Overview: The family of this 243-nucleotide sequence from Dialister sp. CAG:486 is "T-box leader".

[Rfam]
Nucleotides: 243
Stems, first nucleotide, its partner, number of pairs: 007103002015098004026086004031081001040074002050072006106130007132144003181204006209240004220236005
Number, partner (000 for none) and nucleotide at each position: 001000g002000a003000a004000a005000a006000c007103c008102c009000u010000u011000u012000g013000a014000a015098g016097g017096g018095a019000a020000a021000g022000a023000g024000u025000a026086g027085u028084a029083u030000u031081u032000c033000c034000a035000a036000g037000a038000u039000c040074u041073u042000c043000u044000c045000a046000g047000a048000g049000a050072g051071c052070c053069g054068g055067a056000g057000u058000a059000u060000g061000g062000u063000g064000c065000g066000a067055u068054c069053c070052g071051g072050c073041a074040g075000a076000a077000c078000a079000g080000g081031a082000c083029a084028u085027a086026u087000g088000a089000a090000a091000a092000u093000c094000a095018u096017c097016c098015c099000u100000g101000a102008g103007g104000u105000g106130c107129g108128g109127u110126g111125c112124u113000g114000a115000a116000a117000c118000c119000u120000a121000u122000u123000a124112a125111g126110c127109g128108c129107c130106g131000a132144c133143g134142u135000c136000a137000u138000u139000u140000c141000c142134a143133c144132g145000u146000u147000a148000c149000a150000g151000g152000a153000a154000a155000c156000g157000c158000g159000u160000a161000u162000g163000u164000u165000u166000g167000u168000a169000c170000g171000u172000u173000g174000u175000a176000g177000a178000g179000c180000g181204c182203c183202u184201g185200g186199g187000a188000u189000c190000g191000u192000c193000a194000u195000a196000u197000c198000c199186u200185u201184c202183a203182g204181g205000a206000a207000u208000c209240a210239g211238g212237g213000u214000g215000g216000u217000a218000a219000c220236g221235c222234g223233g224232a225000a226000c227000c228000a229000g230000u231000a232224u233223c234222c235221g236220u237212c238211c239210c240209u241000c242000a243000g

A reference for the family is Winkler et al. (2001), "The GA motif: an RNA element common to bacterial antitermination systems, rRNA, and eukaryotic RNAs", RNA.
About the family: Uncharged tRNA acts as the effector for transcription antitermination of genes in the T-box leader family. T-boxes are found upstream of many aminoacyl-tRNA synthetase genes and some amino acid biosynthetic genes usually in Gram-positive bacteria. The anticodon of a specific tRNA base pairs to a specifier sequence within the T-box motif, and the NCCA acceptor tail of the tRNA base pairs to a conserved bulge in the T-box antiterminator hairpin.